Description: Xanthine riboswitch aptamer (NMT1 RNA): a 53-nucleotide RNA sequence from Acinetobacter baylyi. NCBI's taxonomy places the organism under Bacteria, Pseudomonadota, Moraxellales, Acinetobacter, Acinetobacter baylyi.

RNA sequence: UAAUUGAGUAUAAGCGGUUAGUGCGUGCAUUCGCAUGGGACAUUGCUCUACAG
Dot-bracket structure: .....(((((....[..((.(((((......))))).]))...))))).....

The base pairs follow the family's consensus structure, which is taken from published work. Its family is annotated with purine nucleobase binding in the Gene Ontology.